[Rfam]
RNA sequence: UGCUCGGAUACUCCGAGAGGAUCCCCAGGGGCUCUAAUUAGAGCAUCCUGGGGAUCCUCUCGGAGUAUCCGAGCA
Numbered sequence: 001u002g003c004u005c006g007g008a009u010a011c012u013c014c015g016a017g018a019g020g021a022u023c024c025c026c027a028g029g030g031g032c033u034c035u036a037a038u039u040a041g042a043g044c045a046u047c048c049u050g051g052g053g054a055u056c057c058u059c060u061c062g063g064a065g066u067a068u069c070c071g072a073g074c075a
Stems, first nucleotide, its partner, number of pairs: 001075009011065002016060015032043004